The family of this 88-nucleotide sequence from Paracoccus alcaliphilus is "Singlet oxygen resistance RNA X". The family has 8 seed sequences and 528 matches in Rfam 15.1. From the family's description: SorX (RSs2461)like SorY is a singlet oxygen induced sRNA that counteracts oxidative stress by targeting mRNA for a transporter in Rhodobacter. It also has an impact on resistance against organic hydroperoxides.
RNA sequence: AGGCUUCGAAGGCGGUGGAAAGCUUAGCGGUUCAUCACCUUCAACCUCCCUGUUGGACUUAGGCCGGGCUUAGUGCCCGGCUUUUUUU
Number, nucleotide and partner (000 for none) at each position: 001a000002g000003g000004c000005u000006u000007c000008g042009a041010a040011g039012g038013c000014g036015g035016u034017g033018g032019a031020a000021a000022g000023c000024u000025u000026a000027g000028c000029g000030g000031u019032u018033c017034a016035u015036c014037a000038c012039c011040u010041u009042c008043a000044a000045c000046c000047u000048c000049c000050c000051u000052g000053u000054u000055g000056g000057a000058c000059u000060u000061a000062g082063g081064c080065c079066g078067g077068g076069c075070u000071u000072a000073g000074u000075g069076c068077c067078c066079g065080g064081c063082u062083u000084u000085u000086u000087u000088u000

NCBI's taxonomy places the organism under Bacteria, Pseudomonadati, Alphaproteobacteria, Rhodobacterales, Paracoccus.